[Rfam]
RNA sequence: GGCCUCCCUCUGUGGAGCCAUCGAUGGCAGAUCCCUGUAAUUGAUGGCCCCACAGAGGGAGGCC
Dot-bracket structure: (((((((((((((((.(((((((((.((((....)))).))))))))).)))))))))))))))
Numbered sequence: 001g002g003c004c005u006c007c008c009u010c011u012g013u014g015g016a017g018c019c020a021u022c023g024a025u026g027g028c029a030g031a032u033c034c035c036u037g038u039a040a041u042u043g044a045u046g047g048c049c050c051c052a053c054a055g056a057g058g059g060a061g062g063c064c
Stems, first nucleotide, its partner, number of pairs: 001064015017048009027038004
Rfam assigns this 64-nucleotide sequence from Myotis brandtii to the family "mir-9242 microRNA precursor family". Pairs were carried over by alignment from the consensus structure, which was predicted with RNAalifold. The match comes from Rfam's covariance-model search (67 bits). Rfam 15.1 lists 940 matches to the family in 18 species.